A member of the RNA family "Small Cajal body-specific RNA 7" from Columbina picui, 312 nucleotides long. The literature on the family includes a 2002 paper in EMBO J by Darzacq et al., "Cajal body-specific small nuclear RNAs: a novel class of 2'-O-methylation and pseudouridylation guide RNAs". It scores 150 bits against the family's covariance model. Lineage of the source: Eukaryota > Bilateria > Craniata > Columbidae > Columbina.

[Rfam]
RNA sequence: UGGAAGUGAUGAAAUAGAGAUAAUUGGAUGUCUUUCUGAGUGGAGUGUGUGUGAUAAAUGGAAUUUAAAUUUAACUGGGGGUGGGGUUCAAGGGGUGUGUGUGUGUGUGUAUGUAUAGAAAAGGCUUUAAUCGGGGGCACUGAUAAUGCGGUGCUGAUUCCGGAGUGCAUCUGAGGCAUGUUGCUGAGCUCUGAGGUGCCACUUUACAACAUUGCCAAUGAUUAAAGCCCAAACCAAGCCCACCGAGACAAGCCUGGGCAUCCUAAAUCUCGAGAGGGUCACUCACGUAAGUGAUCCUUUGAUCUGAUCUGA
Numbered sequence: 001u002g003g004a005a006g007u008g009a010u011g012a013a014a015u016a017g018a019g020a021u022a023a024u025u026g027g028a029u030g031u032c033u034u035u036c037u038g039a040g041u042g043g044a045g046u047g048u049g050u051g052u053g054a055u056a057a058a059u060g061g062a063a064u065u066u067a068a069a070u071u072u073a074a075c076u077g078g079g080g081g082u083g084g085g086g087u088u089c090a091a092g093g094g095g096u097g098u099g100u101g102u103g104u105g106u107g108u109g110u111a112u113g114u115a116u117a118g119a120a121a122a123g124g125c126u127u128u129a130a131u132c133g134g135g136g137g138c139a140c141u142g143a144u145a146a147u148g149c150g151g152u153g154c155u156g157a158u159u160c161c162g163g164a165g166u167g168c169a170u171c172u173g174a175g176g177c178a179u180g181u182u183g184c185u186g187a188g189c190u191c192u193g194a195g196g197u198g199c200c201a202c203u204u205u206a207c208a209a210c211a212u213u214g215c216c217a218a219u220g221a222u223u224a225a226a227g228c229c230c231a232a233a234c235c236a237a238g239c240c241c242a243c244c245g246a247g248a249c250a251a252g253c254c255u256g257g258g259c260a261u262c263c264u265a266a267a268u269c270u271c272g273a274g275a276g277g278g279u280c281a282c283u284c285a286c287g288u289a290a291g292u293g294a295u296c297c298u299u300u301g302a303u304c305u306g307a308u309c310u311g312a
Base pairs, nucleotide, nucleotide: 001311002310003309004308179211180210181209182208183207186204188199189198191196